[Rfam]
The family of this 103-nucleotide RNA sequence from Novosphingobium nitrogenifigens is "Fluoride riboswitch aptamer (crcB RNA motif)". Gene Ontology terms of the family: positive regulation of gene expression and response to fluoride. The match comes from Rfam's covariance-model search (41 bits).

RNA sequence: UGCGAUGACGGCGAUGGAUUUCCGCCGGGCCUGCUGUGCCGCACAGGCCGAACCGCCUUUCGACGGGCUCUCUUGUCGAAAGGCUGAUGAUUCCUGCCUUCGC
Numbered sequence: 001u002g003c004g005a006u007g008a009c010g011g012c013g014a015u016g017g018a019u020u021u022c023c024g025c026c027g028g029g030c031c032u033g034c035u036g037u038g039c040c041g042c043a044c045a046g047g048c049c050g051a052a053c054c055g056c057c058u059u060u061c062g063a064c065g066g067g068c069u070c071u072c073u074u075g076u077c078g079a080a081a082g083g084c085u086g087a088u089g090a091u092u093c094c095u096g097c098c099u100u101c102g103c
Stems, first nucleotide, its partner, number of pairs: 010026004016094003020090002055084013
Dot-bracket structure: .........((((..[[[.[[.))))............................(((((((((((((....)))))))))))))....]].]]].........